[Rfam]
RNA sequence: GUGAAAUAAAUCACAUACAAACAUACACCCCUUUGUUUGAGCGUGAACAUUUCUCCCAUCCCCUUUGUGUAAUACCGAAAGGCGCCUUCCGGACGUGGAAGGCGCCUUUC
Numbered sequence: 001g002u003g004a005a006a007u008a009a010a011u012c013a014c015a016u017a018c019a020a021a022c023a024u025a026c027a028c029c030c031c032u033u034u035g036u037u038u039g040a041g042c043g044u045g046a047a048c049a050u051u052u053c054u055c056c057c058a059u060c061c062c063c064u065u066u067g068u069g070u071a072a073u074a075c076c077g078a079a080a081g082g083c084g085c086c087u088u089c090c091g092g093a094c095g096u097g098g099a100a101g102g103c104g105c106c107u108u109u110c
Stems, first nucleotide, its partner, number of pairs: 003053005011046004018039006069076001080107011
Dot-bracket structure: ..(((((...((((...((((((..........))))))...))))..)))))...............(......)...(((((((((((......)))))))))))...
The family of this 110-nucleotide RNA sequence from Planococcus massiliensis is "RNA Staph. aureus E (RoxS)".
It was shown to be regulated by the presence of nitric oxide (NO). In Bacillus subtilis it controls expression of genes with functions related to oxidative stress and oxidation-reduction reactions and it was renamed RoxS (for related to oxidative stress).
The match comes from Rfam's covariance-model search (95 bits).
A reference for the family is Geissmann et al. (2009), "A search for small noncoding RNAs in Staphylococcus aureus reveals a conserved sequence motif for regulation", Nucleic Acids Res.
The family's RNA type in Rfam is small RNA.